[Rfam]
RNA sequence: AUUCGCUGAGGGCGGAACAGGCAGCCGCCGCACCUUUAUGGUCUUAAAGAGAUGCAGAUUGUCACCUGCCAGCGGAA
Numbered sequence: 001a002u003u004c005g006c007u008g009a010g011g012g013c014g015g016a017a018c019a020g021g022c023a024g025c026c027g028c029c030g031c032a033c034c035u036u037u038a039u040g041g042u043c044u045u046a047a048a049g050a051g052a053u054g055c056a057g058a059u060u061g062u063c064a065c066c067u068g069c070c071a072g073c074g075g076a077a
Base pairs, nucleotide, nucleotide: 002076003075004074005073006072007071008070011029012028013027014026015025020063021062022061023060031049032042033041034040054069055068056067057066

This 77-nucleotide RNA belongs to the Rfam family "skipping-rope RNA". Pairs were carried over by alignment from the consensus structure, which is taken from published work.